The record is a 318-nucleotide part of an RNA, which matches "Bacterial small subunit ribosomal RNA" in Rfam. A search with the family's covariance model found it, with a score of 653 bits.
[Rfam]
RNA sequence: GGUUUAAAGGGUACCUAGACGGUAUAAUUAGUCCAAAAUAGGAUACGAUUUUACUAGAGUUAUAUAGGAGGAGGUGAGUAUUCAUGCAGUAGAGAUGAAAUUCGUUGAUAGUAUGAAGACUGAUAAAGGCGAAGGCGACCUUUUAUCUAAUAACUGACGUUGAGGGACGAAGGCUCGGGGAACAAACAGGAUUAGAUACCCUAGUAGUCCAAGCAGAGAAUUAUGAAUGUCAUAGACUAGAUAGUAAUUUAGUUUAUAAAUGAAAGUGUAAACAUUCCACCUCAAGAGUAAUGUGGCAACGCAGGAACUGAAAUCAUU
Numbered sequence: 001g002g003u004u005u006a007a008a009g010g011g012u013a014c015c016u017a018g019a020c021g022g023u024a025u026a027a028u029u030a031g032u033c034c035a036a037a038a039u040a041g042g043a044u045a046c047g048a049u050u051u052u053a054c055u056a057g058a059g060u061u062a063u064a065u066a067g068g069a070g071g072a073g074g075u076g077a078g079u080a081u082u083c084a085u086g087c088a089g090u091a092g093a094g095a096u097g098a099a100a101u102u103c104g105u106u107g108a109u110a111g112u113a114u115g116a117a118g119a120c121u122g123a124u125a126a127a128g129g130c131g132a133a134g135g136c137g138a139c140c141u142u143u144u145a146u147c148u149a150a151u152a153a154c155u156g157a158c159g160u161u162g163a164g165g166g167a168c169g170a171a172g173g174c175u176c177g178g179g180g181a182a183c184a185a186a187c188a189g190g191a192u193u194a195g196a197u198a199c200c201c202u203a204g205u206a207g208u209c210c211a212a213g214c215a216g217a218g219a220a221u222u223a224u225g226a227a228u229g230u231c232a233u234a235g236a237c238u239a240g241a242u243a244g245u246a247a248u249u250u251a252g253u254u255u256a257u258a259a260a261u262g263a264a265a266g267u268g269u270a271a272a273c274a275u276u277c278c279a280c281c282u283c284a285a286g287a288g289u290a291a292u293g294u295g296g297c298a299a300c301g302c303a304g305g306a307a308c309u310g311a312a313a314u315c316a317u318u
Base pairs, nucleotide, nucleotide: 001281002280003279009278011168012167014165016162018161019160020159022054023053024052026050027049028048031046032043033042034041058155059154060153063149064148066146069144070143071142072141073140074139075138077121078120081117082116083115084114085113086112087111092103093102094101129136130135173214174213175212177210178209182208183207188202189201190200225277226276227275228274229273230272233256234255235254236253237252238251239250240249241248242247260267261266283310284309292303293302294301295300